[Rfam]
RNA sequence: CCCCAGGGGUUUUGUCAGGAUGCUUCCGCACAUUCGUGUGCCACUGCAAUGGAAGUCGUGCGUUACAUCCCUGGGAGAUCGAUAUCCACCUCCAACUUCUCCGGCCUGGUCAUCAGGUUGGGGAUUGUCAGACUCCGUCUUGGGGUUCUGGCGCCGGAUACCGGACGUGUUUCAUACGAGUUGAAAACCGCCGCGCCCUUUGCUGGGUAUUUUCGUUGCGGUUUUCUUAGUGAUGUUUCAUACAUUU
Numbered sequence: 001c002c003c004c005a006g007g008g009g010u011u012u013u014g015u016c017a018g019g020a021u022g023c024u025u026c027c028g029c030a031c032a033u034u035c036g037u038g039u040g041c042c043a044c045u046g047c048a049a050u051g052g053a054a055g056u057c058g059u060g061c062g063u064u065a066c067a068u069c070c071c072u073g074g075g076a077g078a079u080c081g082a083u084a085u086c087c088a089c090c091u092c093c094a095a096c097u098u099c100u101c102c103g104g105c106c107u108g109g110u111c112a113u114c115a116g117g118u119u120g121g122g123g124a125u126u127g128u129c130a131g132a133c134u135c136c137g138u139c140u141u142g143g144g145g146u147u148c149u150g151g152c153g154c155c156g157g158a159u160a161c162c163g164g165a166c167g168u169g170u171u172u173c174a175u176a177c178g179a180g181u182u183g184a185a186a187a188c189c190g191c192c193g194c195g196c197c198c199u200u201u202g203c204u205g206g207g208u209a210u211u212u213u214c215g216u217u218g219c220g221g222u223u224u225u226c227u228u229a230g231u232g233a234u235g236u237u238u239c240a241u242a243c244a245u246u247u
Stems, first nucleotide, its partner, number of pairs: 003074005018061001020059003023055005029040003085165003091122008101109002127152005132146006167241003173235003183226004188221004195208004
Notes
Shown here is a 247-nucleotide sequence from Cercophora samala, a member of the family "Small nucleolar RNA snR191". Gene Ontology terms of the family: RNA processing and nucleolus. For this family Rfam cites "A snoRNA that guides the two most conserved pseudouridine modifications within rRNA confers a growth advantage in yeast" (Badis et al., RNA, 2003). By type it is an H/ACA-box small nucleolar RNA.